Annotation
A member of the RNA family "Alphaproteobacterial ar14" from Neorhizobium lilium, 121 nucleotides long. The family's RNA type in Rfam is small RNA. About the family: Smr14C2 was renamed NfeR1 (Nodule Formation Efficiency RNA) highly expressed in salt stress and during the symbiotic interaction on legume roots. It scores 108 bits against the family's covariance model. On this family, see del Val et al., RNA Biol 2012: "A survey of sRNA families in alpha-proteobacteria".

[Rfam]
Nucleotides: 121
Stems, first nucleotide, its partner, number of pairs: 007038003011035006043076010085116011
Number, partner (000 for none) and nucleotide at each position: 001000a002000a003000c004000c005000a006000u007038c008037g009036a010000a011035g012034g013033g014032c015031g016030c017000a018000c019000u020000c021000c022000u023000c024000c025000u026000c027000c028000c029000a030016g031015u032014g033013c034012u035011c036009u037008c038007g039000a040000u041000g042000g043076g044075a045074c046073c047072a048071a049070c050069a051068a052067c053000a054000c055000c056000u057000c058000c059000u060000c061000c062000u063000c064000c065000c066000g067052g068051u069050u070049g071048u072047u073046g074045g075044u076043c077000a078000g079000u080000u081000u082000c083000a084000g085116a086115a087114g088113c089112c090111c091110g092109g093108c094107g095106c096000a097000c098000c099000u100000c101000c102000u103000c104000c105000c106095g107094c108093g109092c110091c111090g112089g113088g114087c115086u116085u117000u118000c119000u120000g121000u